[Rfam]
RNA sequence: UGCGUGUGUGAUGAAAACUUGACCUUAGGUAGGUCUUUAUUUGGAUCGUUUUGGUUCAAAGUUACGGACUUACCAAUGUUAGGGUUGUCAUAGUUACACUGACACGCU
Numbered sequence: 001u002g003c004g005u006g007u008g009u010g011a012u013g014a015a016a017a018c019u020u021g022a023c024c025u026u027a028g029g030u031a032g033g034u035c036u037u038u039a040u041u042u043g044g045a046u047c048g049u050u051u052u053g054g055u056u057c058a059a060a061g062u063u064a065c066g067g068a069c070u071u072a073c074c075a076a077u078g079u080u081a082g083g084g085u086u087g088u089c090a091u092a093g094u095u096a097c098a099c100u101g102a103c104a105c106g107c108u
Stems, first nucleotide, its partner, number of pairs: 002107005
The record is a 108-nucleotide RNA from Cynoglossus semilaevis, which matches "Small nucleolar RNA SNORD46" in Rfam. It scores 47 bits against the family's covariance model. From the family's description: U40 is a C/D box small nucleolar RNA, also known as snoZ153 in plants. The human sequence has also been annotated in the sequence databases as U46. U40 is encoded in intron 2 of the ribosomal protein S8 gene in human, and is hypothesised to guide methylation of 2'-O-ribose residues on 28S ribosomal RNA. This family represents vertebrate U40. For this family Rfam cites "Intron-encoded, antisense small nucleolar RNAs: the characterization of nine novel species points to their direct role as guides for the 2'-O-ribose methylation of rRNAs" (Nicoloso et al., J Mol Biol, 1996). Lineage of the source: Eukaryota > Opisthokonta > Metazoa > Actinopteri > Cynoglossus.